[Rfam]
Rfam assigns this 99-nucleotide RNA from Gemmobacter aquatilis to the family "TPP riboswitch aptamer (THI element)". The base pairs follow the family's consensus structure, which is taken from published work.

RNA sequence: GCUGGCACCUCGGGGUGCUCGGAUGAGCUGAGAUGCGAAAGCGGACCCGUUGAACCUGAACCGGUUAAGACCGGCGGAGGGAAGGUGUGGCCACUUGUG
Numbered sequence: 001g002c003u004g005g006c007a008c009c010u011c012g013g014g015g016u017g018c019u020c021g022g023a024u025g026a027g028c029u030g031a032g033a034u035g036c037g038a039a040a041g042c043g044g045a046c047c048c049g050u051u052g053a054a055c056c057u058g059a060a061c062c063g064g065u066u067a068a069g070a071c072c073g074g075c076g077g078a079g080g081g082a083a084g085g086u087g088u089g090g091c092c093a094c095u096u097g098u099g
Base pairs, nucleotide, nucleotide: 006087007086008085009084010083011049012048013047014046016043017028018027019026020025035042036041055080056079057078061074062073063072064071